[Rfam]
RNA sequence: UUGGCCGUGAACGUCCAGUAAUCCUGCGUCUCCAGGAGCGCCUGGUAGCUGUAAUGGUCGCCGUCCGCGAGGACCGCGAGCACCGUCUCAUCGCCGUACUUGCCCGCGCCGAUCUUGUUGACCUUGCCGUGCGCGAUGAGGCAGAUGUGAUCGGCCUCCUUGCCGCGCUCGGUGAUGACGUCGCCGGGCUUGUAUUCACGCUGCACGAAGCGGUUCGCCAGCGCGGUGAGGACCUCGACGUCCUCGUAACCGCGGAGGAGCGGCAGCUCGCAGAGCUCCUGCGGGAUGACAUGGAUCUUCGCGCCGGUGUUCGUGAACGUCACCCGCCCGUCGCCCACCGCAUAGCUCAGGCGGCGGUUCACGCGGUACACGCCGUUGACGUGCACCCACGGCAGGAGCUUGACCAGCCACCGCGACGAGAUGCCCUGCAUCUGCGGCGCCGACUUGGUCGUCGUCGCGAGCUGCCGCGCGGCCGCCGUCGCGAGGCUGGUCUGGUGCUGAUCGA
Numbered sequence: 001u002u003g004g005c006c007g008u009g010a011a012c013g014u015c016c017a018g019u020a021a022u023c024c025u026g027c028g029u030c031u032c033c034a035g036g037a038g039c040g041c042c043u044g045g046u047a048g049c050u051g052u053a054a055u056g057g058u059c060g061c062c063g064u065c066c067g068c069g070a071g072g073a074c075c076g077c078g079a080g081c082a083c084c085g086u087c088u089c090a091u092c093g094c095c096g097u098a099c100u101u102g103c104c105c106g107c108g109c110c111g112a113u114c115u116u117g118u119u120g121a122c123c124u125u126g127c128c129g130u131g132c133g134c135g136a137u138g139a140g141g142c143a144g145a146u147g148u149g150a151u152c153g154g155c156c157u158c159c160u161u162g163c164c165g166c167g168c169u170c171g172g173u174g175a176u177g178a179c180g181u182c183g184c185c186g187g188g189c190u191u192g193u194a195u196u197c198a199c200g201c202u203g204c205a206c207g208a209a210g211c212g213g214u215u216c217g218c219c220a221g222c223g224c225g226g227u228g229a230g231g232a233c234c235u236c237g238a239c240g241u242c243c244u245c246g247u248a249a250c251c252g253c254g255g256a257g258g259a260g261c262g263g264c265a266g267c268u269c270g271c272a273g274a275g276c277u278c279c280u281g282c283g284g285g286a287u288g289a290c291a292u293g294g295a296u297c298u299u300c301g302c303g304c305c306g307g308u309g310u311u312c313g314u315g316a317a318c319g320u321c322a323c324c325c326g327c328c329c330g331u332c333g334c335c336c337a338c339c340g341c342a343u344a345g346c347u348c349a350g351g352c353g354g355c356g357g358u359u360c361a362c363g364c365g366g367u368a369c370a371c372g373c374c375g376u377u378g379a380c381g382u383g384c385a386c387c388c389a390c391g392g393c394a395g396g397a398g399c400u401u402g403a404c405c406a407g408c409c410a411c412c413g414c415g416a417c418g419a420g421a422u423g424c425c426c427u428g429c430a431u432c433u434g435c436g437g438c439g440c441c442g443a444c445u446u447g448g449u450c451g452u453c454g455u456c457g458c459g460a461g462c463u464g465c466c467g468c469g470c471g472g473c474c475g476c477c478g479u480c481g482c483g484a485g486g487c488u489g490g491u492c493u494g495g496u497g498c499u500g501a502u503c504g505a
Stems, first nucleotide, its partner, number of pairs: 007386003011382002014379002018328001025322001026320003029316002036312007045305001048302002051299001055232001058229007065111001067109002077102004082097002085094002117222004122217001127212001130209001131206001133204003138199001140197001143196002150191001154189003158186001161183001163177001166174003235295002240290003244286002251281002254278001256277002260271003330341002351376006363369001388428002391425004399420003405413001407412001434473002437470001439468002442465001445461002448458002474504002478498002481496002484493002
Background
Shown here is a 505-nucleotide sequence from Sorangium cellulosum, a member of the family "Saccharopolyspora sRNA 350". The match comes from Rfam's covariance-model search (152 bits). Its family is annotated with regulation of secondary metabolite biosynthetic process in the Gene Ontology. The family's RNA type in Rfam is antisense RNA. Taxonomically the source falls in Sorangium cellulosum (Bacteria, Myxococcota, Polyangiaceae, Sorangium).